Rfam assigns this 58-nucleotide RNA sequence from Macaca mulatta to the family "Antizyme RNA frameshifting stimulation element". By type it is a frameshift element. For this family Rfam cites "Identification of a new antizyme mRNA +1 frameshifting stimulatory pseudoknot in a subset of diverse invertebrates and its apparent absence in intermediate species" (Ivanov et al., J Mol Biol, 2004). The source organism's lineage runs through Eukaryota, Bilateria, Craniata, Theria and Macaca. This family represents a structural element which is found in antizyme mRNA and is known to promote frameshifting. Antizyme genes have have two partially overlapping open reading frames, the second, which encodes the functional protein requires +1 translational frameshifting. This frameshift is stimulated by a pseudoknot present 3' of the frameshift site in the antizyme mRNA. The frameshifting efficiency is dependent on the level of polyamines in the cell, when the polyamine concentration is high frameshifting is more likely to occur which leads to an increase in the quantity of functional antizyme produced. The functional antizyme acts to reduce ornithine decarboxylase (ODC) activity which leads to a drop in polyamines present in the cell. Therefore, this family can be thought of as a biosensor for intracellular free polyamines.
RNA sequence: UGAAGCCCCUCACCCACCCCUGAAGAUCCCAGGUGGGGAGGGAAUAGUCAGAGAGAUC
Numbered sequence: 001u002g003a004a005g006c007c008c009c010u011c012a013c014c015c016a017c018c019c020c021u022g023a024a025g026a027u028c029c030c031a032g033g034u035g036g037g038g039a040g041g042g043a044a045u046a047g048u049c050a051g052a053g054a055g056a057u058c
Stems, first nucleotide, its partner, number of pairs: 007042005013037006025058004030053001